[Rfam]
RNA: c-di-GMP-I-GGC riboswitch aptamer
Organism: Mesobacillus foraminis
RNA sequence: ACAGAAAAAGGCAAACUUGUCGAAAGUCAAGGGCGCAAAGUCACGGGUCUAAGGUGUGGGAUGGUGCUAUGAUAGCCGGACUGCCUGGA
Dot-bracket structure: ..((......((...((((.(....).))))..[))..((((.((((((.....................))).])))))))..))...